[Rfam]
RNA sequence: UCGCAUCCACACGACUGGCGCGGGUGGGCGGACCACCGGGGAGUGACGUCAGGGCAUCGACCGCCUGGGUGCCCGCC
Numbered sequence: 001u002c003g004c005a006u007c008c009a010c011a012c013g014a015c016u017g018g019c020g021c022g023g024g025u026g027g028g029c030g031g032a033c034c035a036c037c038g039g040g041g042a043g044u045g046a047c048g049u050c051a052g053g054g055c056a057u058c059g060a061c062c063g064c065c066u067g068g069g070u071g072c073c074c075g076c077c
Stems, first nucleotide, its partner, number of pairs: 003049002006046001010045003015040002017065004024036004054072005